[Rfam]
RNA sequence: UUUACCCACUAGGGGAGUCCUUGUUAAGGGCUGAGAUGGAGGCGAAACCUCUAGACCCUCAAAACCUGAUCUGGUUCAAACCAGCGUAGGGAAGUGGCUGCGGAUCAAC
Numbered sequence: 001u002u003u004a005c006c007c008a009c010u011a012g013g014g015g016a017g018u019c020c021u022u023g024u025u026a027a028g029g030g031c032u033g034a035g036a037u038g039g040a041g042g043c044g045a046a047a048c049c050u051c052u053a054g055a056c057c058c059u060c061a062a063a064a065c066c067u068g069a070u071c072u073g074g075u076u077c078a079a080a081c082c083a084g085c086g087u088a089g090g091g092a093a094g095u096g097g098c099u100g101c102g103g104a105u106c107a108a109c
Stems, first nucleotide, its partner, number of pairs: 006097005011059004017031005038052005065090004071084004